A member of the RNA family "tRNA" from Caldanaerobacter subterraneus, 73 nucleotides long. A search with the family's covariance model found it, with a score of 69 bits. The source organism's lineage runs through Bacteria, Bacillota, Clostridia, Caldanaerobacter and Caldanaerobacter subterraneus subsp. tengcongensis.
[Rfam]
RNA sequence: GGGCCUUUAGCUCAGCUGGCAGAGCGGUCGGCUCAUAACCGAUUGGUCCGGGGUUCAAAUCCCUGAAGGCCCA
Numbered sequence: 001g002g003g004c005c006u007u008u009a010g011c012u013c014a015g016c017u018g019g020c021a022g023a024g025c026g027g028u029c030g031g032c033u034c035a036u037a038a039c040c041g042a043u044u045g046g047u048c049c050g051g052g053g054u055u056c057a058a059a060u061c062c063c064u065g066a067a068g069g070c071c072c073a
Stems, first nucleotide, its partner, number of pairs: 001072007010025004027043005049065005